[Rfam]
RNA sequence: AGCUUUGCGCAGUGGCACUAUGGUAGCCAAUGAGGUUUAUCUGAGGCACGAUUAUUGCUAAUUAAAAUACUACCAUUGAUUCUAAGGUUUAAUAUGUAGUUUUUGUAUAAUUUCUUAAAUAUAGUUUCCAAU
Numbered sequence: 001a002g003c004u005u006u007g008c009g010c011a012g013u014g015g016c017a018c019u020a021u022g023g024u025a026g027c028c029a030a031u032g033a034g035g036u037u038u039a040u041c042u043g044a045g046g047c048a049c050g051a052u053u054a055u056u057g058c059u060a061a062u063u064a065a066a067a068u069a070c071u072a073c074c075a076u077u078g079a080u081u082c083u084a085a086g087g088u089u090u091a092a093u094a095u096g097u098a099g100u101u102u103u104u105g106u107a108u109a110a111u112u113u114c115u116u117a118a119a120u121a122u123a124g125u126u127u128c129c130a131a132u
Stems, first nucleotide, its partner, number of pairs: 020052002023049002026047003034042002079108002082105001084103006121132002124129001